Shown here is a 64-nucleotide RNA from Cnephaeus nilssonii, a member of the family "mir-9242 microRNA precursor family".
The match comes from Rfam's covariance-model search (66 bits).
[Rfam]
RNA sequence: GGCCUCCCUCUAUGGGGCAAUCGAUCGCGGGCCCCCCAGAUCGAUCGCCCCACAGAGGGAGGCC
Numbered sequence: 001g002g003c004c005u006c007c008c009u010c011u012a013u014g015g016g017g018c019a020a021u022c023g024a025u026c027g028c029g030g031g032c033c034c035c036c037c038a039g040a041u042c043g044a045u046c047g048c049c050c051c052a053c054a055g056a057g058g059g060a061g062g063c064c
Stems, first nucleotide, its partner, number of pairs: 001064011013052006020045007029036002

Lineage of the source: Eukaryota > Opisthokonta > Metazoa > Craniata > Cnephaeus. Its family is annotated with miRNA-mediated post-transcriptional gene silencing and RISC complex in the Gene Ontology.